A member of the RNA family "Aar sRNA" from Acinetobacter sp. TGL-Y2, 190 nucleotides long. For this family Rfam cites "The small RNA Aar in Acinetobacter baylyi: a putative regulator of amino acid metabolism" (Schilling et al., Arch Microbiol, 2010).
RNA sequence: AUUAACGAGAACUUACACUACUUUACGUAAUUACAUAUGACGAUCUAAUUGAGAUUGAUUAUUAUUUUUAAACAGUUAUGAGCAUCCCCAAUGUUCAUAACAUUUCUCCUUAACCGAAACUGUGAAAACAGAGUCGUUGUUAUACGCAAUGAUCACCCCAAUCAUUGCGUAUUUUUUUGUCUAUCACAAA
Numbered sequence: 001a002u003u004a005a006c007g008a009g010a011a012c013u014u015a016c017a018c019u020a021c022u023u024u025a026c027g028u029a030a031u032u033a034c035a036u037a038u039g040a041c042g043a044u045c046u047a048a049u050u051g052a053g054a055u056u057g058a059u060u061a062u063u064a065u066u067u068u069u070a071a072a073c074a075g076u077u078a079u080g081a082g083c084a085u086c087c088c089c090a091a092u093g094u095u096c097a098u099a100a101c102a103u104u105u106c107u108c109c110u111u112a113a114c115c116g117a118a119a120c121u122g123u124g125a126a127a128a129c130a131g132a133g134u135c136g137u138u139g140u141u142a143u144a145c146g147c148a149a150u151g152a153u154c155a156c157c158c159c160a161a162u163c164a165u166u167g168c169g170u171a172u173u174u175u176u177u178u179g180u181c182u183a184u185c186a187c188a189a190a
Stems, first nucleotide, its partner, number of pairs: 013053002017049001019047002023043001026039003066190002072184001074182002077179001079099002082096001084094002115136003120131004144170010
Rfam classes the family as a small RNA.